The family of this 56-nucleotide sequence from Heptacodium miconioides is "Plastid-ccsA-ndhD-1 3UTR RNA". Plastid-ccsA-ndhD-1 is a non-coding RNA (ncRNA) recognised in plastids.
RNA sequence: AAACCGGCGAGAACCCUGUGAAUCACUAUGUUACUUGAUUCACACGGUUCUCACAA
Dot-bracket structure: ......(.(((((((.(((((((((..........))))))))).))))))).)..
Clan: Plastid-ccsA_ndhD 3UTR RNA clan. A reference for the family is Stern and Gruissem (1987), "Control of plastid gene expression: 3' inverted repeats act as mRNA processing and stabilizing elements, but do not terminate transcription", Cell. The family has 488 seed sequences and 1,322 matches in Rfam 15.1.